[Rfam]
RNA: TPP riboswitch aptamer (THI element)
RNA sequence: UAUAAGUCCAAGGGGUGCCAAUUGGCUGAGAUGGUUUUAACCAAUCCCUUUGAACCUGAUCCGGUUAAUACCGGCGUAGGAAUGGAUUUUCUCUACAGC
Numbered sequence: 001u002a003u004a005a006g007u008c009c010a011a012g013g014g015g016u017g018c019c020a021a022u023u024g025g026c027u028g029a030g031a032u033g034g035u036u037u038u039a040a041c042c043a044a045u046c047c048c049u050u051u052g053a054a055c056c057u058g059a060u061c062c063g064g065u066u067a068a069u070a071c072c073g074g075c076g077u078a079g080g081a082a083u084g085g086a087u088u089u090u091c092u093c094u095a096c097a098g099c
Stems, first nucleotide, its partner, number of pairs: 006087005011049004016043001017026003033042003055080004061074004